[Rfam]
RNA sequence: GCCGAGUUGGAUAACACCAGCUUGUGACCCAAGUGGGGGCAUUAAGGUGAUGGAACGGUUCCAUGGCUUGCUGGGUUGGACUGUUGAGUGCAAUAUGUUUGGCUUGCCCACUCCAAGUUGAGAGUUGAUUCAUGUGACUUGAGCUAAGGCCCAGGUCUCAUGGGUCCUAGACUAGAGGGCACAGCGUGAGGCUGGAUUCACAGAGCAGCGAUAACCUCUGGCCCUCAACAGUGGAGGGAUAACAGGUUGCAGCACUAUCAGUCCAUUAUGACCUGGUGAGCCUGGCUGCUUGAACCAUCAUUUUU
Dot-bracket structure: ((((((((((......)))))))....(((....))))))...((((((((((..((((.(((.(..((((((((((((((((.(..(((.........(((((((.((.(((((.((((((.((.((((((((.((((((.((....)).)))))).))))))))......((((((....(.(((....(((......)))....))).)..)))))))).))))))..)))))))....)))))))...))).).)))))).....)))))))))).).)))..)).))..)))))))))).
Shown here is a 305-nucleotide RNA sequence from Lupinus angustifolius, a member of the family "Plant signal recognition particle RNA". Pairs were carried over by alignment from the consensus structure, which is taken from published work. By type it is a non-coding RNA gene. NCBI's taxonomy places the organism under Eukaryota, Fabales, Fabaceae, core genistoids, Lupinus.